[Rfam]
A member of the RNA family "M-box riboswitch aptamer (ykoK leader)" from Mycetocola lacteus, 168 nucleotides long. A search with the family's covariance model found it, with a score of 150 bits. The family has 159 seed sequences and 1,095 matches in Rfam 15.1. Gene Ontology terms of the family: regulation of gene expression and response to magnesium ion. The literature on the family includes a 2004 paper in Proc Natl Acad Sci U S A by Barrick et al., "New RNA motifs suggest an expanded scope for riboswitches in bacterial genetic control".

RNA sequence: GCAGCACUUCGUUAGGCGAGGCUCCUGCACGAAUAUAGGCCACUGAUCUGACGACGUCGAGAGACGCCCAAGAUUAGGACAGGUUCUCCCGGAUUAAGGGUUAACCCCAAGUGGCUUCCCGCGAGGGAUACGUCGUGCAGUGCCAAAGCUCUUACGUGGAGGUAGCGC
Numbered sequence: 001g002c003a004g005c006a007c008u009u010c011g012u013u014a015g016g017c018g019a020g021g022c023u024c025c026u027g028c029a030c031g032a033a034u035a036u037a038g039g040c041c042a043c044u045g046a047u048c049u050g051a052c053g054a055c056g057u058c059g060a061g062a063g064a065c066g067c068c069c070a071a072g073a074u075u076a077g078g079a080c081a082g083g084u085u086c087u088c089c090c091g092g093a094u095u096a097a098g099g100g101u102u103a104a105c106c107c108c109a110a111g112u113g114g115c116u117u118c119c120c121g122c123g124a125g126g127g128a129u130a131c132g133u134c135g136u137g138c139a140g141u142g143c144c145a146a147a148g149c150u151c152u153u154a155c156g157u158g159g160a161g162g163u164a165g166c167g168c
Stems, first nucleotide, its partner, number of pairs: 006163005011155002013097001015150003020144003025140008039115005045075005055066004082106004088100003117128003